[Rfam]
RNA sequence: GAGGGGAGGCCGGAUCCUGGGCUGUGUCCCGGCGCCCAGUGCUCCCGGCCCUGCGCUGUUGGAUUCGCGCUCCAGGCCGCGCAGCCGCCU
Numbered sequence: 001g002a003g004g005g006g007a008g009g010c011c012g013g014a015u016c017c018u019g020g021g022c023u024g025u026g027u028c029c030c031g032g033c034g035c036c037c038a039g040u041g042c043u044c045c046c047g048g049c050c051c052u053g054c055g056c057u058g059u060u061g062g063a064u065u066c067g068c069g070c071u072c073c074a075g076g077c078c079g080c081g082c083a084g085c086c087g088c089c090u
Stems, first nucleotide, its partner, number of pairs: 001090001003088001005086002009082002011079003016076002019073003023069004027063003030058006039051001041050001043048001
Rfam assigns this 90-nucleotide RNA sequence from Canis lupus to the family "mir-8799 microRNA precursor family". Its Rfam clan is "mir-8791 microRNA precursor clan". The source organism's lineage runs through Eukaryota, Eumetazoa, Deuterostomia, Laurasiatheria and Canis lupus.